[Rfam]
speF leader: a 145-nucleotide RNA from Phyllobacterium sp. YR531. Rfam's curators write: This family is a putative regulatory RNA structure that is found upstream of the speF gene encoding ornithine decarboxylase in Agrobacterium tumefaciens and other alpha-proteobacteria.
RNA sequence: UUUCGGCUGUCCAAAAGCUGAGAAUUACUGAAGAGGCACACCUUCAUUGCCGGUAGUGCGGAUGGGAACAUCCAAACCAAGGCAGACAAAGCGGAUCAACGCCCCGAUUGGCGCAGGUCCACCGCCGCAUGAACUUGUCCGUGUU
Numbered sequence: 001u002u003u004c005g006g007c008u009g010u011c012c013a014a015a016a017g018c019u020g021a022g023a024a025u026u027a028c029u030g031a032a033g034a035g036g037c038a039c040a041c042c043u044u045c046a047u048u049g050c051c052g053g054u055a056g057u058g059c060g061g062a063u064g065g066g067a068a069c070a071u072c073c074a075a076a077c078c079a080a081g082g083c084a085g086a087c088a089a090a091g092c093g094g095a096u097c098a099a100c101g102c103c104c105c106g107a108u109u110g111g112c113g114c115a116g117g118u119c120c121a122c123c124g125c126c127g128c129a130u131g132a133a134c135u136u137g138u139c140c141g142u143g144u145u
Base pairs, nucleotide, nucleotide: 001023002022003021004020005019006018007017008016035051036050037049038048058125059124060123082092
Rfam classes the family as a cis-regulatory leader. For this family Rfam cites "Evidence for a second class of S-adenosylmethionine riboswitches and other regulatory RNA motifs in alpha-proteobacteria" (Corbino et al., Genome Biol, 2005). Taxonomically the source falls in Phyllobacterium (Bacteria, Alphaproteobacteria, Hyphomicrobiales, Phyllobacteriaceae).